The record is a 326-nucleotide RNA from Lichenicola cladoniae, which matches "Alphaproteobacteria transfer-messenger RNA" in Rfam.
Rfam's curators write: Bacterial tmRNA, also known as 10Sa RNA or SsrA, is named for its dual tRNA and mRNA-like properties.
RNA sequence: CAUCUGGACGCAACGGCAUGCACACCCUAUAUUCAGUAGUGCGAGGGGCAACCCUAGCUAUGGCGAUAAACGGUGUGUGGAAUAAUCGUUGUGGACCCGGGGGCAGUGCCCGGCGUCUCCACCAAACGCCGGAGGCCGCGAGGCCGAGGGCCUCAUGGGGACGAAACAGGCUCGACACGCGUGGUAAAGACUAACUUUUUGCUCGGCAUGAUACCGCCGUCAUCGGGUCAUAUUACAAGUGCCAACGAUAACAAUCAGGCGCUCGCUGUCGCUGCAUAAGCGAUAAGCGCGGUUCGGGGGGGCACCGGGCAACAGAAGCCCCCUCA
Numbered sequence: 001c002a003u004c005u006g007g008a009c010g011c012a013a014c015g016g017c018a019u020g021c022a023c024a025c026c027c028u029a030u031a032u033u034c035a036g037u038a039g040u041g042c043g044a045g046g047g048g049c050a051a052c053c054c055u056a057g058c059u060a061u062g063g064c065g066a067u068a069a070a071c072g073g074u075g076u077g078u079g080g081a082a083u084a085a086u087c088g089u090u091g092u093g094g095a096c097c098c099g100g101g102g103g104c105a106g107u108g109c110c111c112g113g114c115g116u117c118u119c120c121a122c123c124a125a126a127c128g129c130c131g132g133a134g135g136c137c138g139c140g141a142g143g144c145c146g147a148g149g150g151c152c153u154c155a156u157g158g159g160g161a162c163g164a165a166a167c168a169g170g171c172u173c174g175a176c177a178c179g180c181g182u183g184g185u186a187a188a189g190a191c192u193a194a195c196u197u198u199u200u201g202c203u204c205g206g207c208a209u210g211a212u213a214c215c216g217c218c219g220u221c222a223u224c225g226g227g228u229c230a231u232a233u234u235a236c237a238a239g240u241g242c243c244a245a246c247g248a249u250a251a252c253a254a255u256c257a258g259g260c261g262c263u264c265g266c267u268g269u270c271g272c273u274g275c276a277u278a279a280g281c282g283a284u285a286a287g288c289g290c291g292g293u294u295c296g297g298g299g300g301g302g303c304a305c306c307g308g309g310c311a312a313c314a315g316a317a318g319c320c321c322c323c324u325c326a
Base pairs, nucleotide, nucleotide: 041058042057044055045054046053047052062203063202064201065200066199072196073195074194077191078190087181088180089179091178092177093176097113098112099111100110101109114163115162116161117160118159119158120157204219205218206217207216209230210229211228214226215225290307291306292305293304298323299322300321301320302319
Taxonomically the source falls in Lichenicola (Bacteria, Pseudomonadati, Pseudomonadota, Acetobacteraceae).
A search with the family's covariance model found it, with a score of 241 bits.